[Rfam]
RNA sequence: AUGCCCAAUGAUUAUAACAAGACGCGUUAUUACGAGGACUGGUGCUGGAACUCCCUUUCUAUCUUCUUCCAGUUCUUUACUUUUUCUCUCAAGUCCUCCUCUCCUUCUUGCACCCUUCUUUUUUCUCUCCCCCCCCCCAAACAUUCUUGGAGUUUCCAGUGUCCUGUGAGCAAGAUUAUGAGAUAUGAGGGCAA
Numbered sequence: 001a002u003g004c005c006c007a008a009u010g011a012u013u014a015u016a017a018c019a020a021g022a023c024g025c026g027u028u029a030u031u032a033c034g035a036g037g038a039c040u041g042g043u044g045c046u047g048g049a050a051c052u053c054c055c056u057u058u059c060u061a062u063c064u065u066c067u068u069c070c071a072g073u074u075c076u077u078u079a080c081u082u083u084u085u086c087u088c089u090c091a092a093g094u095c096c097u098c099c100u101c102u103c104c105u106u107c108u109u110g111c112a113c114c115c116u117u118c119u120u121u122u123u124u125c126u127c128u129c130c131c132c133c134c135c136c137c138c139a140a141a142c143a144u145u146c147u148u149g150g151a152g153u154u155u156c157c158a159g160u161g162u163c164c165u166g167u168g169a170g171c172a173a174g175a176u177u178a179u180g181a182g183a184u185a186u187g188a189g190g191g192c193a194a
Stems, first nucleotide, its partner, number of pairs: 002193005035076007

Background:
The family of this 194-nucleotide RNA from Varanus komodoensis is "Small nucleolar RNA SNORD97". A search with the family's covariance model found it, with a score of 99 bits. The base pairs follow the family's consensus structure, which was predicted with WAR.